[Rfam]
RNA sequence: AUUUGCCCCGGUGCCCCUAGGGCCCGAGGCGGCAGACAACACACCGUGCUGCGGGAAGAACCGCGCACAUCAGGGCGUU
Number, nucleotide and partner (000 for none) at each position: 001a000002u000003u000004u031005g030006c029007c028008c000009c026010g025011g024012u000013g023014c022015c021016c000017c000018u000019a000020g000021g015022g014023c013024c011025c010026g009027a000028g007029g006030c005031g004032g000033c000034a000035g000036a000037c000038a000039a000040c000041a000042c000043a000044c000045c000046g068047u067048g066049c065050u000051g000052c000053g061054g000055g000056a000057a000058g000059a000060a000061c053062c000063g000064c000065g049066c048067a047068c046069a000070u000071c000072a000073g000074g000075g000076c000077g000078u000079u000

This 79-nucleotide sequence from Actinacidiphila yanglinensis belongs to the Rfam family "nrdJ RNA". The match comes from Rfam's covariance-model search (59 bits). Lineage of the source: Bacteria > Actinomycetes > Kitasatosporales > Streptomycetaceae > Actinacidiphila.